This 200-nucleotide RNA sequence from Aegilops tauschii belongs to the Rfam family "MIR1435 microRNA precursor family". Pairs were carried over by alignment from the consensus structure, which was predicted with RNAalifold. Rfam links the family to the GO terms miRNA-mediated post-transcriptional gene silencing and RISC complex. A search with the family's covariance model found it, with a score of 99 bits. NCBI's taxonomy places the organism under Eukaryota, Poales, Pooideae, Triticeae, Aegilops tauschii.

[Rfam]
RNA sequence: UAGGUUUGUCCUAAGUCAAACUAGCUUAAGUUUGACCAACUUAUAUAGAAAAAUGUGCUAGGAUCUACAUAACCAAAUACACAUAUGCGAAAAUAUAGUUCAUAAAGAAUCUCGUGGGACUAAUUAGGUGCUCUAGAUGUCAAUAUAUUUUUCUAUAGACUUGGUCAGACUUAAACAAGUUUGACUUAGGACAAACCCAG
Numbered sequence: 001u002a003g004g005u006u007u008g009u010c011c012u013a014a015g016u017c018a019a020a021c022u023a024g025c026u027u028a029a030g031u032u033u034g035a036c037c038a039a040c041u042u043a044u045a046u047a048g049a050a051a052a053a054u055g056u057g058c059u060a061g062g063a064u065c066u067a068c069a070u071a072a073c074c075a076a077a078u079a080c081a082c083a084u085a086u087g088c089g090a091a092a093a094u095a096u097a098g099u100u101c102a103u104a105a106a107g108a109a110u111c112u113c114g115u116g117g118g119a120c121u122a123a124u125u126a127g128g129u130g131c132u133c134u135a136g137a138u139g140u141c142a143a144u145a146u147a148u149u150u151u152u153c154u155a156u157a158g159a160c161u162u163g164g165u166c167a168g169a170c171u172u173a174a175a176c177a178a179g180u181u182u183g184a185c186u187u188a189g190g191a192c193a194a195a196c197c198c199a200g
Stems, first nucleotide, its partner, number of pairs: 005195005011189012024176001026174001031169005046155008056145002061140001063138005069132001073128002076125003